Rfam assigns this 65-nucleotide sequence from Cyanistes caeruleus to the family "Small nucleolar RNA SNORD24". The literature on the family includes a 1996 paper in Cell by Kiss-Laszlo et al., "Site-specific ribose methylation of preribosomal RNA: a novel function for small nucleolar RNAs". Gene Ontology terms of the family: RNA processing and nucleolus.
RNA sequence: UGCAGAUGAUGAUCCCUUUUUGCUCUGAAAAAAAAGUGAUGACAGCCACCAAGAUCGCUGAUGCA
Numbered sequence: 001u002g003c004a005g006a007u008g009a010u011g012a013u014c015c016c017u018u019u020u021u022g023c024u025c026u027g028a029a030a031a032a033a034a035a036g037u038g039a040u041g042a043c044a045g046c047c048a049c050c051a052a053g054a055u056c057g058c059u060g061a062u063g064c065a
Stems, first nucleotide, its partner, number of pairs: 001065004